[Rfam]
RNA sequence: UCCUUAUCAAGAGAGGUGGAGGGAAUGGGCCCGAUGAAACCCGGCAACCAGCAUUUUUUGCAUGGUGCCAAUUCCUGCAGGCUAUGCCUGGAAGAUGAGGG
Dot-bracket structure: ((((((((....(.(((...(((..[[[[)))......))))((((.((.(((.....)))..))))))...(]]]](((((...)))))..)))))))))